[Rfam]
RNA sequence: ACGGAAGCUUGGAGAGGCCAAGAUCGAGCCGGAAGAGAAGGCUCGAAUCUCCCGCUUCAAGCUCCCCAGCACGGAACCCGGCACCCACGCGGAGCACAUGCCGCGGAAUAGGCAAAAGUGUUGCGGGCCUGCGUAUUUGCGAAAAGCGGACGGCCAUAGUGGCCCCUUGGGUGGGGCUGCCGCCGAAGCGCAUCGACAAGACGCCGAGGCCACCCACGCAACCCGAAAAGCACGCUUGGUAACCGGUGUCCGUGCUAGCGGGCGACGAGCCGAACCGACGUUCGGAACGUCGCCCGCUUCGCGUU
Numbered sequence: 001a002c003g004g005a006a007g008c009u010u011g012g013a014g015a016g017g018c019c020a021a022g023a024u025c026g027a028g029c030c031g032g033a034a035g036a037g038a039a040g041g042c043u044c045g046a047a048u049c050u051c052c053c054g055c056u057u058c059a060a061g062c063u064c065c066c067c068a069g070c071a072c073g074g075a076a077c078c079c080g081g082c083a084c085c086c087a088c089g090c091g092g093a094g095c096a097c098a099u100g101c102c103g104c105g106g107a108a109u110a111g112g113c114a115a116a117a118g119u120g121u122u123g124c125g126g127g128c129c130u131g132c133g134u135a136u137u138u139g140c141g142a143a144a145a146g147c148g149g150a151c152g153g154c155c156a157u158a159g160u161g162g163c164c165c166c167u168u169g170g171g172u173g174g175g176g177c178u179g180c181c182g183c184c185g186a187a188g189c190g191c192a193u194c195g196a197c198a199a200g201a202c203g204c205c206g207a208g209g210c211c212a213c214c215c216a217c218g219c220a221a222c223c224c225g226a227a228a229a230g231c232a233c234g235c236u237u238g239g240u241a242a243c244c245g246g247u248g249u250c251c252g253u254g255c256u257a258g259c260g261g262g263c264g265a266c267g268a269g270c271c272g273a274a275c276c277g278a279c280g281u282u283c284g285g286a287a288c289g290u291c292g293c294c295c296g297c298u299u300c301g302c303g304u305u
Stems, first nucleotide, its partner, number of pairs: 003066002006063007016053002021050002025045006068256008078246004085239003089235003094231002099114004120222006126211005131204004137198001140195003146191003151185004160179007258297010270285003
RNA: Mycobacterium smegmatis small RNA 1
Organism: Mycobacterium sp. E740